[Rfam]
RNA: L17-Actino-Proteobacteria ribosomal protein leader
RNA sequence: CCGGACGGCCGGGGGCGCGUUCCCCGGCCGUUCCGGAACCAGCUGACACCGGUACCUGGUACGGCCGGUGCAG
Numbered sequence: 001c002c003g004g005a006c007g008g009c010c011g012g013g014g015g016c017g018c019g020u021u022c023c024c025c026g027g028c029c030g031u032u033c034c035g036g037a038a039c040c041a042g043c044u045g046a047c048a049c050c051g052g053u054a055c056c057u058g059g060u061a062c063g064g065c066c067g068g069u070g071c072a073g
Stems, first nucleotide, its partner, number of pairs: 001036005006030010043073003047070007